[Rfam]
RNA sequence: CAUGGAGCCGGGGGCGAUCCCCGGCUGGCUCUUCCGGCCGCCGAUCCGCCGGAUAACC
Numbered sequence: 001c002a003u004g005g006a007g008c009c010g011g012g013g014g015c016g017a018u019c020c021c022c023g024g025c026u027g028g029c030u031c032u033u034c035c036g037g038c039c040g041c042c043g044a045u046c047c048g049c050c051g052g053a054u055a056a057c058c
Stems, first nucleotide, its partner, number of pairs: 006026006013018001033053006

Annotation:
The record is a 58-nucleotide RNA sequence from Roseovarius gahaiensis, which matches "sul1 RNA" in Rfam. It is annotated as a riboswitch. It scores 74 bits against the family's covariance model. The source organism's lineage runs through Bacteria, Pseudomonadota, Alphaproteobacteria, Rhodobacterales and Roseovarius.